[Rfam]
tRNA: a 73-nucleotide RNA from Actinoplanes philippinensis. Gene Ontology term of the family: triplet codon-amino acid adaptor activity. The family's consensus secondary structure is taken from published work. NCBI's taxonomy places the organism under Bacteria, Bacillati, Actinomycetota, Actinomycetes, Actinoplanes.
RNA sequence: UCUCUCGUGGUCCAAUCGGCAGUGACGCCCGGCUCUGGACCGGGAGAUUCAGGUUCGAGUCCUGGCGAGAGAG
Numbered sequence: 001u002c003u004c005u006c007g008u009g010g011u012c013c014a015a016u017c018g019g020c021a022g023u024g025a026c027g028c029c030c031g032g033c034u035c036u037g038g039a040c041c042g043g044g045a046g047a048u049u050c051a052g053g054u055u056c057g058a059g060u061c062c063u064g065g066c067g068a069g070a071g072a073g
Base pairs, nucleotide, nucleotide: 001072002071003070004069005068006067007066010026011025012024028044029043030042031041032040049065050064051063052062053061